[Rfam]
RNA: Pyrrolysine insertion sequence mttB
Organism: Osedax symbiont Rs1
RNA sequence: UUUGCGGCUCUAAACUGCCGGAUGCGCAAGCGGCCAAUGAAGCGGCCAACACCUUGCUACCCACGGCACUUGCCGGGGUAAACUUCGCACUACACACCG
Numbered sequence: 001u002u003u004g005c006g007g008c009u010c011u012a013a014a015c016u017g018c019c020g021g022a023u024g025c026g027c028a029a030g031c032g033g034c035c036a037a038u039g040a041a042g043c044g045g046c047c048a049a050c051a052c053c054u055u056g057c058u059a060c061c062c063a064c065g066g067c068a069c070u071u072g073c074c075g076g077g078g079u080a081a082a083c084u085u086c087g088c089a090c091u092a093c094a095c096a097c098c099g
Base pairs, nucleotide, nucleotide: 024031032061033060076097078095079094